[Rfam]
RNA: hya RNA
RNA sequence: AGCGCUGCGCAAGUGGGCCGACGGUCGACUCCGGCAGUGUCAGGGGUUUCAGCUCGCCCCGGAAAGCUGCAA
Number, nucleotide and partner (000 for none) at each position: 001a000002g000003c039004g038005c037006u036007g035008c034009g000010c000011a000012a000013g000014u000015g000016g000017g000018c000019c000020g000021a000022c000023g000024g000025u000026c000027g000028a000029c000030u000031c000032c000033g000034g008035c007036a006037g005038u004039g003040u000041c000042a000043g060044g059045g058046g057047u056048u000049u000050c000051a000052g000053c000054u000055c000056g047057c046058c045059c044060c043061g000062g000063a000064a000065a000066g000067c000068u000069g000070c000071a000072a000